[Rfam]
RNA sequence: GACGAAUCUAUUGCCUGCCAAGCCCAUGCAUUACCGUGCAUGGGGGAGGGCAGCGAAAAGAGGAAUCU
Numbered sequence: 001g002a003c004g005a006a007u008c009u010a011u012u013g014c015c016u017g018c019c020a021a022g023c024c025c026a027u028g029c030a031u032u033a034c035c036g037u038g039c040a041u042g043g044g045g046g047a048g049g050g051c052a053g054c055g056a057a058a059a060g061a062g063g064a065a066u067c068u
Stems, first nucleotide, its partner, number of pairs: 011056003015053005023044009
The record is a 68-nucleotide sequence, which matches "ilvH RNA" in Rfam. The sequence is in the family's curated seed alignment. The family's RNA type in Rfam is cis-regulatory element.